[Rfam]
RNA sequence: CCUUCACUGAUGAGUAAACCCAAGACUUUCGUUCUCCUGAAACUGCUGAAGCAACUCUCUUUUCUGAGAAGG
Numbered sequence: 001c002c003u004u005c006a007c008u009g010a011u012g013a014g015u016a017a018a019c020c021c022a023a024g025a026c027u028u029u030c031g032u033u034c035u036c037c038u039g040a041a042a043c044u045g046c047u048g049a050a051g052c053a054a055c056u057c058u059c060u061u062u063u064c065u066g067a068g069a070a071g072g
Stems, first nucleotide, its partner, number of pairs: 001072003005068001
The record is a 72-nucleotide RNA sequence from Anolis carolinensis, which matches "Small nucleolar RNA SNORD59" in Rfam. Rfam classes the family as a C/D-box small nucleolar RNA. Pairs were carried over by alignment from the consensus structure, which was predicted with ILM. Lineage of the source: Eukaryota > Chordata > Sauropsida > Bifurcata > Anolis. The family has 24 seed sequences and 1,355 matches in Rfam 15.1. Its family is annotated with RNA processing and nucleolus in the Gene Ontology. On this family, see Galardi et al., Mol Cell Biol 2002: "Purified box C/D snoRNPs are able to reproduce site-specific 2'-O-methylation of target RNA in vitro". A search with the family's covariance model found it, with a score of 68 bits.